[Rfam]
RNA: Bacillaceae-1 RNA
Organism: Lentibacillus halodurans
RNA sequence: UUCCAAGGAACAAAGGCUAAAAACGCAACAUCCCUGUUGCAACGCCUUUGUGACAUGCAUCUUGCAAG
Dot-bracket structure: ..........(((((((.......(((((......)))))...)))))))...(.(((.....))).)
Numbered sequence: 001u002u003c004c005a006a007g008g009a010a011c012a013a014a015g016g017c018u019a020a021a022a023a024c025g026c027a028a029c030a031u032c033c034c035u036g037u038u039g040c041a042a043c044g045c046c047u048u049u050g051u052g053a054c055a056u057g058c059a060u061c062u063u064g065c066a067a068g
Stems, first nucleotide, its partner, number of pairs: 011050007025040005054068001056066003